[Rfam]
A member of the RNA family "che1 RNA" from Streptomyces sp. HmicA12, 99 nucleotides long. Pairs were carried over by alignment from the consensus structure, which is taken from published work. Taxonomically the source falls in Streptomyces (Bacteria, Actinomycetota, Kitasatosporales, Streptomycetaceae). It is annotated as a small RNA.

RNA sequence: AGGGCAGGGGGGUCUCGGCCAUUUCGGCUGAGCCUGUCCGGCAGGUUGCGCGUGAUGGCUCAGGUGCGACCAGUGGUUGUCGCUCGGGGGUGAUCGCCG
Numbered sequence: 001a002g003g004g005c006a007g008g009g010g011g012g013u014c015u016c017g018g019c020c021a022u023u024u025c026g027g028c029u030g031a032g033c034c035u036g037u038c039c040g041g042c043a044g045g046u047u048g049c050g051c052g053u054g055a056u057g058g059c060u061c062a063g064g065u066g067c068g069a070c071c072a073g074u075g076g077u078u079g080u081c082g083c084u085c086g087g088g089g090g091u092g093a094u095c096g097c098c099g
Stems, first nucleotide, its partner, number of pairs: 002039007014032007044071008